[Rfam]
RNA sequence: UGACGGGGGCUCACACAAGCGGUGGAGGAUGUGGCUUAAUUCGAGGCUACGCGAAGAACCUUAUCCUAGACUUGACAUGCUUGAGAAUCCCUAUGAAAAUAGAGAGUGCCCUUCGGGGAGCUCUUGCACAGGUGCUGCAUGGCUGUCGUCAGCUCGUGUCGUGAGAUGUCGGGUUAAGUCCCUUAACGAGCGAAACCCUUAUCUUUAGUUGCCAGCGGGUAAUGCCGGGGACUCUAAAGAGACUGCCGGUGUCAAACCGGAGGAAGGUGGGGAUGACGUCAAGUCCUCAUGGCCUUUAUGUCUAGGGCUGCACACGUCCUACAAUGGUACGGACAAACGGAAGCAAUACCGCGAGGUGGAGCAAAUCCUAAAAACCGUACCUCAGUUCGGAUUGCAGGCUGCAACUCGCCUGCAUGAAGCCGGAAUCGCUAGUAAUCGUAGGUCAGCAUACUACGGUGAAUGUGUUCCUGAGCCUUGUACACACCGCCCGUCAAGCCACGAAAGUUGGGAGGGCCCGAAGUCGCUAAGCUAACAGUUUACUGAGGCAGGCGCCGAAGGUCAGCUCGACAAUUGGGACUAAGUCGUAACAAGG
Number, nucleotide and partner (000 for none) at each position: 001u481002g480003a478004c477005g476006g000007g475008g474009g473010c472011u471012c470013a469014c000015a465016c464017a000018a000019g429020c428021g427022g426023u425024g322025g000026a320027g319028g318029a317030u316031g315032u314033g313034g311035c310036u000037u000038a000039a000040u055041u054042c053043g052044a000045g000046g000047c000048u000049a000050c000051g000052c043053g042054a041055a040056g000057a000058a000059c000060c000061u000062u000063a000064u000065c306066c305067u304068a303069g302070a301071c300072u000073u000074g000075a000076c000077a000078u128079g127080c000081u000082u000083g123084a122085g121086a000087a000088u105089c104090c000091c102092u101093a100094u099095g000096a000097a000098a000099a094100u093101a092102g091103a000104g089105a088106g000107u120108g000109c118110c117111c000112u000113u000114c000115g000116g000117g110118g109119a000120g107121c085122u084123c083124u000125u000126g000127c079128a078129c000130a000131g295132g294133u000134g293135c292136u291137g290138c000139a000140u289141g288142g284143c283144u282145g280146u000147c278148g277149u000150c000151a000152g191153c190154u189155c188156g187157u186158g167159u166160c165161g000162u000163g000164a000165g160166a159167u158168g000169u000170c000171g182172g181173g180174u000175u000176a000177a000178g000179u000180c173181c172182c171183u000184u000185a000186a157187c156188g155189a154190g153191c152192g000193a000194a000195a000196c000197c272198c271199u270200u269201a000202u240203c239204u238205u237206u236207a235208g234209u000210u000211g000212c229213c228214a000215g000216c227217g226218g225219g000220u000221a000222a000223u000224g000225c218226c217227g216228g213229g212230g000231a000232c000233u000234c208235u207236a206237a205238a204239g203240a202241g000242a000243c263244u262245g000246c260247c259248g258249g257250u256251g000252u000253c000254a000255a000256a250257c249258c248259g247260g246261a000262g244263g243264a000265a000266g000267g000268u000269g200270g199271g198272g197273a000274u000275g000276a000277c148278g147279u000280c145281a000282a144283g143284u142285c000286c000287u000288c141289a140290u137291g136292g135293c134294c132295u131296u000297u000298a000299u000300g071301u070302c069303u068304a067305g066306g065307g000308c000309u000310g035311c034312a000313c033314a032315c031316g030317u029318c028319c027320u026321a000322c024323a000324a000325u000326g381327g380328u379329a378330c377331g376332g375333a000334c000335a000336a000337a000338c000339g368340g367341a000342a000343g362344c361345a000346a000347u000348a357349c356350c355351g000352c000353g000354a000355g350356g349357u348358g000359g000360a000361g344362c343363a000364a000365a000366u000367c340368c339369u000370a000371a000372a000373a000374a000375c332376c331377g330378u329379a328380c327381c326382u000383c000384a000385g000386u000387u000388c419389g000390g000391a000392u000393u414394g413395c412396a411397g410398g409399c408400u000401g000402c000403a000404a000405c000406u000407c000408g399409c398410c397411u396412g395413c394414a393415u000416g000417a000418a000419g388420c000421c000422g000423g000424a000425a023426u022427c021428g020429c019430u000431a000432g000433u000434a000435a457436u456437c455438g454439u453440a452441g451442g000443u000444c000445a000446g000447c000448a000449u000450a000451c441452u440453a439454c438455g437456g436457u435458g000459a000460a000461u000462g000463u000464g016465u015466u000467c000468c000469u013470g012471a011472g010473c009474c008475u007476u005477g004478u003479a000480c002481a001482c000483a000484c591485c000486g588487c000488c000489c584490g583491u000492c000493a000494a578495g577496c000497c575498a000499c573500g572501a571502a000503a000504g568505u567506u566507g565508g564509g563510a000511g000512g560513g559514c558515c557516c000517g000518a000519a000520g553521u000522c551523g550524c549525u548526a000527a000528g546529c545530u544531a000532a000533c542534a541535g000536u000537u000538u000539a000540c000541u534542g533543a000544g530545g529546c528547a000548g525549g524550c523551g522552c000553c520554g000555a000556a000557g515558g514559u513560c512561a000562g000563c509564u508565c507566g506567a505568c504569a000570a000571u501572u500573g499574g000575g497576a000577c495578u494579a000580a000581g000582u000583c490584g489585u000586a000587a000588c486589a000590a000591g484592g000
Rfam assigns this 592-nucleotide part of an RNA from Stieleria marina to the family "Bacterial small subunit ribosomal RNA". Its family is annotated with ribosome and structural constituent of ribosome in the Gene Ontology. Rfam 15.1 lists 42,628 matches to the family in 10,626 species. NCBI's taxonomy places the organism under Bacteria, Pseudomonadati, Planctomycetota, Pirellulales, Stieleria.